[Rfam]
RNA sequence: AAAGAGCCCCACGUGGAAGGAGUAGCUGUACCACCACGGCCCCGAGUCAUGCGCGGGUGGUCGUGAGGCCGCACGUGAAGCGUUGACAGGGGGAAACGCAGGCCAGCCAUUGAGCUCCGAAAUCACCCUUCCGGGGUGCCGACCUCGUGAACCGGCAGGGAAGGCAAUACGGUAUAACGGCGUAAAGAACGCAGCGAGCCGUAUACCGGCCCCGCGGAGUCAGAGACCC
Number, nucleotide and partner (000 for none) at each position: 001a000002a000003a000004g000005a000006g000007c000008c000009c000010c000011a000012c038013g037014u036015g035016g034017a000018a000019g032020g031021a000022g029023u197024a000025g195026c194027u000028g000029u022030a000031c020032c019033a000034c016035c015036a014037c013038g012039g000040c092041c091042c090043c089044g000045a000046g087047u086048c085049a084050u082051g081052c077053g076054c075055g074056g000057g072058u071059g070060g069061u068062c067063g000064u000065g000066a000067g062068g061069c060070c059071g058072c057073a000074c055075g054076u053077g052078a000079a000080g000081c051082g050083u000084u049085g048086a047087c046088a000089g043090g042091g041092g040093g000094a000095a000096a000097c000098g000099c000100a000101g000102g000103c000104c000105a000106g000107c000108c000109a000110u000111u223112g221113a000114g220115c219116u218117c217118c216119g215120a000121a000122a000123u000124c000125a000126c000127c000128c000129u000130u000131c000132c214133g213134g212135g211136g210137u209138g165139c164140c163141g000142a000143c159144c158145u157146c000147g000148u000149g000150a000151a000152c000153c000154g000155g000156c000157a145158g144159g143160g000161a000162a000163g140164g139165c138166a000167a000168u000169a000170c208171g207172g206173u205174a204175u203176a000177a202178c201179g200180g199181c198182g000183u000184a000185a000186a000187g000188a000189a000190c000191g000192c000193a000194g026195c025196g000197a023198g181199c180200c179201g178202u177203a175204u174205a173206c172207c171208g170209g137210c136211c135212c134213c133214g132215c119216g118217g117218a116219g115220u114221c112222a000223g111224a000225g000226a000227c000228c000229c000

Notes
The record is a 229-nucleotide RNA sequence from Pelotomaculum propionicicum, which matches "Group II catalytic intron D1-D4-6" in Rfam. Lineage of the source: Bacteria > Bacillota > Clostridia > Eubacteriales > Pelotomaculum. Rfam links the family to the GO term Group II intron splicing. Group II introns are found in rRNA, tRNA and mRNA of organelles in fungi, plants and protists, and also in mRNA in bacteria.